[Rfam]
RNA: Small nucleolar RNA SNORD102
Organism: Nestor notabilis
RNA sequence: AGCUUGAUGAUGAUUGUCUCAUGUGAUUGCUUGCUGAAAGCAAAGUGAUCAAUCAUUUCACCGACGCUGAAAGCA
Numbered sequence: 001a002g003c004u005u006g007a008u009g010a011u012g013a014u015u016g017u018c019u020c021a022u023g024u025g026a027u028u029g030c031u032u033g034c035u036g037a038a039a040g041c042a043a044a045g046u047g048a049u050c051a052a053u054c055a056u057u058u059c060a061c062c063g064a065c066g067c068u069g070a071a072a073g074c075a
Base pairs, nucleotide, nucleotide: 002074003073004072005071